RNA sequence: GAUUGCACUAUUCAACCCUCUCUGCAAUCGCGGCUG
Numbered sequence: 001g002a003u004u005g006c007a008c009u010a011u012u013c014a015a016c017c018c019u020c021u022c023u024g025c026a027a028u029c030g031c032g033g034c035u036g
Stems, first nucleotide, its partner, number of pairs: 001029007
S4-Bacteroidia ribosomal protein leader: a 36-nucleotide RNA. The base pairs follow the family's consensus structure, which is taken from published work. Rfam classes the family as a cis-regulatory leader. For this family Rfam cites "Discovery of 20 novel ribosomal leader candidates in bacteria and archaea" (Eckert and Weinberg, BMC Microbiol, 2020).